[Rfam]
RNA sequence: GGCUGGUCUGAAAGUAGUGAGUUAUCUCAAUUGACUGUUCACAGUCAGUUACAGAUCAAACUUCUUAUUCUACUCUUUCCCUCCUCCUCACGACUGCUUUUGACUAGUCUUUU
Numbered sequence: 001g002g003c004u005g006g007u008c009u010g011a012a013a014g015u016a017g018u019g020a021g022u023u024a025u026c027u028c029a030a031u032u033g034a035c036u037g038u039u040c041a042c043a044g045u046c047a048g049u050u051a052c053a054g055a056u057c058a059a060a061c062u063u064c065u066u067a068u069u070c071u072a073c074u075c076u077u078u079c080c081c082u083c084c085u086c087c088u089c090a091c092g093a094c095u096g097c098u099u100u101u102g103a104c105u106a107g108u109c110u111u112u113u
Stems, first nucleotide, its partner, number of pairs: 001109008010101002014097002017091005044074001047071002